A member of the RNA family "L31-Gammaproteobacteria ribosomal protein leader" from Pseudoalteromonas piratica, 51 nucleotides long. Taxonomically the source falls in Pseudoalteromonas (Bacteria, Pseudomonadota, Alteromonadales, Pseudoalteromonadaceae).
[Rfam]
RNA sequence: CGUAUGGUGCCAGACUUCGGGUUUGGAGAGCGAUACGGCCUAAUUAGAGGU
Numbered sequence: 001c002g003u004a005u006g007g008u009g010c011c012a013g014a015c016u017u018c019g020g021g022u023u024u025g026g027a028g029a030g031c032g033a034u035a036c037g038g039c040c041u042a043a044u045u046a047g048a049g050g051u
Base pairs, nucleotide, nucleotide: 001037002036003035004034005033007031008030010026011025012024013023014022015021